Bacterial RNase P class A: a 377-nucleotide sequence from Targowskia paracuniculus. Ribonuclease P (RNase P) is a ubiquitous endoribonuclease, found in archaea, bacteria and eukarya as well as chloroplasts and mitochondria. Its best characterised activity is the generation of mature 5'-ends of tRNAs by cleaving the 5'-leader elements of precursor-tRNAs. Cellular RNase Ps are ribonucleoproteins. RNA from bacterial RNase Ps retains its catalytic activity in the absence of the protein subunit, i.e. it is a ribozyme. Lineage of the source: Bacteria > Pseudomonadota > Pasteurellales > Pasteurellaceae > Targowskia. By type it is a ribozyme.
[Rfam]
RNA sequence: UGAGUCGGUUAGACAAUCGCUGGUUUAUUGAAGCCCUCAAAUUCGCUUUGCGAGAACUAGGGGACAAGUGAACGAGAGGAAAGUCCGAGCUACACAGGGCAGAGUGCCAGAUAACGUCUGGGGGGCGUGAGCCUACGACCAGUGCAACAGAGAGCAGACCGCCGAUAUUUCGGUAAGGGUGAAAGGGUGCGGUAAGAGCGCACCGUGUGGGUGGUAACAUUCCACAGCAGGGUAAACUCCACUCGUAGCAAGACCAAAUAGGAACUCAAUGGGUUGCCCGCUCAGAGUUCGGGUAGGUUGCUUGAACGUGCGUGCGAACGUACGUCUAGAUGAAUGAUUGUCCACGACAGAACUCGGCUUAUCGACCGGCUCAUCUU
Number, nucleotide and partner (000 for none) at each position: 001u373002g372003a371004g370005u369006c368007g367008g366009u365010u364011a362012g342013a341014c340015a339016a338017u337018c336019g000020c076021u075022g000023g073024u072025u071026u070027a069028u068029u000030g000031a000032a000033g000034c000035c000036c000037u000038c000039a000040a000041a000042u000043u000044c000045g000046c000047u000048u000049u000050g000051c000052g000053a000054g000055a000056a000057c000058u000059a000060g000061g000062g000063g000064a000065c000066a000067a000068g028069u027070g026071a025072a024073c023074g000075a021076g020077a000078g000079g000080a000081a360082a359083g358084u000085c357086c356087g355088a354089g353090c248091u247092a246093c245094a000095c000096a000097g279098g278099g277100c276101a000102g244103a243104g242105u241106g240107c121108c120109a119110g118111a117112u000113a000114a000115c000116g000117u111118c110119u109120g108121g107122g136123g134124g133125g132126c131127g000128u000129g000130a000131g126132c125133c124134u123135a000136c122137g239138a238139c000140c000141a000142g237143u236144g233145c232146a000147a000148c000149a000150g000151a000152g000153a000154g000155c000156a000157g000158a000159c178160c177161g174162c173163c172164g171165a170166u000167a000168u000169u000170u165171c164172g163173g162174u161175a000176a000177g160178g159179g000180u000181g000182a000183a000184a000185g000186g204187g203188u202189g201190c200191g199192g000193u000194a000195a000196g000197a000198g000199c191200g190201c189202a188203c187204c186205g228206u226207g225208u224209g223210g222211g220212u219213g218214g000215u000216a000217a000218c213219a212220u211221u000222c210223c209224a208225c207226a206227g000228c205229a000230g000231g000232g145233u144234a000235a000236a143237c142238u138239c137240c106241a105242c104243u103244c102245g093246u092247a091248g090249c000250a000251a000252g299253a298254c297255c296256a000257a000258a000259u000260a000261g000262g290263a289264a288265c287266u286267c285268a000269a000270u284271g283272g282273g281274u280275u000276g100277c099278c098279c097280g274281c273282u272283c271284a270285g267286a266287g265288u264289u263290c262291g000292g000293g000294u000295a000296g255297g254298u253299u252300g000301c000302u000303u000304g000305a000306a325307c324308g323309u322310g321311c320312g319313u318314g000315c000316g000317a000318a313319c312320g311321u310322a309323c308324g307325u306326c000327u000328a000329g000330a000331u000332g000333a000334a000335u000336g018337a017338u016339u015340g014341u013342c012343c000344a000345c000346g000347a000348c000349a000350g000351a000352a000353c089354u088355c087356g086357g085358c083359u082360u081361a000362u011363c000364g010365a009366c008367c007368g006369g005370c004371u003372c002373a001374u000375c000376u000377u000